[Rfam]
Rfam assigns this 179-nucleotide RNA from Bacillus yapensis to the family "Lysine riboswitch aptamer". Taxonomically the source falls in Bacillus (Bacteria, Bacilli, Caryophanales, Bacillaceae).

RNA sequence: AGUGAAGAUAGAGGUGCGGACAUUAAGAGUAAAAGCUCGGAGAAAGAUGAGUUUCUGUGAGGGGCUUUGAAAGGGAUGGACCGCCGAAGUGAAGAAAGACUCAUAUCUUUCUAAGCUGGUUCUGUAUUGAAUAAAUGCAGGAUUGUCAAGAUGUUAUGUCUUGGAGAGCUAUCUUUUGG
Number, nucleotide and partner (000 for none) at each position: 001a000002g000003u000004g000005a000006a174007g173008a172009u171010a170011g169012a000013g000014g000015u000016g084017c083018g082019g081020a000021c079022a077023u076024u075025a000026a000027g000028a000029g000030u000031a000032a068033a067034a066035g065036c064037u063038c062039g000040g000041a000042g000043a000044a000045a000046g000047a000048u000049g000050a000051g000052u000053u000054u000055c000056u000057g000058u000059g000060a000061g000062g038063g037064g036065c035066u034067u033068u032069g000070a000071a000072a000073g000074g000075g024076a023077u022078g000079g021080a000081c019082c018083g017084c016085c000086g000087a000088a117089g116090u115091g000092a000093a112094g111095a110096a109097a108098g107099a106100c000101u000102c000103a000104u000105a000106u099107c098108u097109u096110u095111c094112u093113a000114a000115g090116c089117u088118g144119g143120u142121u141122c140123u139124g138125u137126a136127u135128u134129g000130a000131a000132u000133a000134a128135a127136u126137g125138c124139a123140g122141g121142a120143u119144u118145g000146u164147c163148a162149a161150g160151a159152u158153g000154u000155u000156a000157u000158g152159u151160c150161u149162u148163g147164g146165a000166g000167a000168g000169c011170u010171a009172u008173c007174u006175u000176u000177u000178g000179g000